[Rfam]
RNA sequence: AAUUAUUGUAAAUCCCCUGUUAACUAUGGUAACUCUGUAGGUAUUACUUCGAACGAACUAACGAAAAAACAGACGACACAUGAAAGCCCUUCUACAAGUGAUUAGCCUAGUCGUGAUUAGCGUGGUGGUGAUUAUUAACCCACCGUGCGGGGCUACGCUUGGAGAAAGAAAGGCUUAAAAAUCAAGCCUGGAAUUCGAAAAACCCCCGUACCGUAAGGUCCGGGGGUUUUUUUUCGACCAGACGAAAUAUCAGCGAAUCAGCGAGGAACAGAUUAUGAGCAGUAGCAUAAAAUUCUGUUGUUCCAGCAGGAA
Numbered sequence: 001a002a003u004u005a006u007u008g009u010a011a012a013u014c015c016c017c018u019g020u021u022a023a024c025u026a027u028g029g030u031a032a033c034u035c036u037g038u039a040g041g042u043a044u045u046a047c048u049u050c051g052a053a054c055g056a057a058c059u060a061a062c063g064a065a066a067a068a069a070c071a072g073a074c075g076a077c078a079c080a081u082g083a084a085a086g087c088c089c090u091u092c093u094a095c096a097a098g099u100g101a102u103u104a105g106c107c108u109a110g111u112c113g114u115g116a117u118u119a120g121c122g123u124g125g126u127g128g129u130g131a132u133u134a135u136u137a138a139c140c141c142a143c144c145g146u147g148c149g150g151g152g153c154u155a156c157g158c159u160u161g162g163a164g165a166a167a168g169a170a171a172g173g174c175u176u177a178a179a180a181a182u183c184a185a186g187c188c189u190g191g192a193a194u195u196c197g198a199a200a201a202a203c204c205c206c207c208g209u210a211c212c213g214u215a216a217g218g219u220c221c222g223g224g225g226g227u228u229u230u231u232u233u234u235c236g237a238c239c240a241g242a243c244g245a246a247a248u249a250u251c252a253g254c255g256a257a258u259c260a261g262c263g264a265g266g267a268a269c270a271g272a273u274u275a276u277g278a279g280c281a282g283u284a285g286c287a288u289a290a291a292a293u294u295c296u297g298u299u300g301u302u303c304c305a306g307c308a309g310g311a312a
Stems, first nucleotide, its partner, number of pairs: 006032004011027001037077002040074001042072001044069002048065001049061001088266003092261002101248003105243001107241002110238001112122003124144005130139001132137001146163001148161004165195002172189002175186002197232012210219003267299006275288003
Overview: This 312-nucleotide sequence from a Plautia stali symbiont belongs to the Rfam family "Soft rot Enterobacteriaceae Rev 39 5'UTR". The base pairs follow the family's consensus structure, which was predicted with RNAfold. It is annotated as a cis-regulatory element. The match comes from Rfam's covariance-model search (140 bits). NCBI's taxonomy places the organism under Bacteria, Pseudomonadati, Pseudomonadota, Enterobacterales, Enterobacteriaceae. Its family is annotated with cellular response to starvation in the Gene Ontology. From bacteria cultured under starvation conditions.